[Rfam]
RNA sequence: AGCUUCGGGGCAAGGGGCGCUCAUUCCAAAGACCCACGACGGCGGCGAAAGAACCCGACCAAGCCCCACCCCUCCCGCCCGCCGGUCAAACUCACUCCCGCGAGUGAAUAUGCCCAACUCGACUGGAUUCGUGACGGGUUGCCUGCCUUACGCUCAGCGCAACGCAGCGCAGAGCCACAGUGCUGCACCUCCACCCCAGACAUGCGACGGCCCCCGCCGGGACGGCAAUCCCAGUGCGAGGGCCUGACCACCGAGGAAGGCCACUUCCCG
Numbered sequence: 001a002g003c004u005u006c007g008g009g010g011c012a013a014g015g016g017g018c019g020c021u022c023a024u025u026c027c028a029a030a031g032a033c034c035c036a037c038g039a040c041g042g043c044g045g046c047g048a049a050a051g052a053a054c055c056c057g058a059c060c061a062a063g064c065c066c067c068a069c070c071c072c073u074c075c076c077g078c079c080c081g082c083c084g085g086u087c088a089a090a091c092u093c094a095c096u097c098c099c100g101c102g103a104g105u106g107a108a109u110a111u112g113c114c115c116a117a118c119u120c121g122a123c124u125g126g127a128u129u130c131g132u133g134a135c136g137g138g139u140u141g142c143c144u145g146c147c148u149u150a151c152g153c154u155c156a157g158c159g160c161a162a163c164g165c166a167g168c169g170c171a172g173a174g175c176c177a178c179a180g181u182g183c184u185g186c187a188c189c190u191c192c193a194c195c196c197c198a199g200a201c202a203u204g205c206g207a208c209g210g211c212c213c214c215c216g217c218c219g220g221g222a223c224g225g226c227a228a229u230c231c232c233a234g235u236g237c238g239a240g241g242g243c244c245u246g247a248c249c250a251c252c253g254a255g256g257a258a259g260g261c262c263a264c265u266u267c268c269c270g
Stems, first nucleotide, its partner, number of pairs: 007252002010249001016079004092107006122181004209244005215238003219232004255268005